[Rfam]
RNA: Small nucleolar RNA snoR2/U65
RNA sequence: GGUCCGAUGCCACGUCGCCGGUAGCGAAGAUGAGCAAUGGCCGGCGAUGCUAUGAUUGGACCAAUAUCAAUACCAUGUUUCGCAUCCUGAUAGGAAUCUGUGGAUCUUAGUUUAUGCAGUUGAUCCACGGAGCCGAUUUAUGCGAUUACAUUC
Numbered sequence: 001g002g003u004c005c006g007a008u009g010c011c012a013c014g015u016c017g018c019c020g021g022u023a024g025c026g027a028a029g030a031u032g033a034g035c036a037a038u039g040g041c042c043g044g045c046g047a048u049g050c051u052a053u054g055a056u057u058g059g060a061c062c063a064a065u066a067u068c069a070a071u072a073c074c075a076u077g078u079u080u081c082g083c084a085u086c087c088u089g090a091u092a093g094g095a096a097u098c099u100g101u102g103g104a105u106c107u108u109a110g111u112u113u114a115u116g117c118a119g120u121u122g123a124u125c126c127a128c129g130g131a132g133c134c135g136a137u138u139u140a141u142g143c144g145a146u147u148a149c150a151u152u153c
Stems, first nucleotide, its partner, number of pairs: 002061007009053001013049006020042003024035002080145005093134002098130003102126005